[Rfam]
RNA: Nitrogen stress-induced RNA 1
RNA sequence: AGGUAGAUGCACCCUGAUAAUUUUAAACCCCCGCCUCACAAGGGUUGGGGGUUUUUUGU
Numbered sequence: 001a002g003g004u005a006g007a008u009g010c011a012c013c014c015u016g017a018u019a020a021u022u023u024u025a026a027a028c029c030c031c032c033g034c035c036u037c038a039c040a041a042g043g044g045u046u047g048g049g050g051g052u053u054u055u056u057u058g059u
Stems, first nucleotide, its partner, number of pairs: 002013003028051006035044003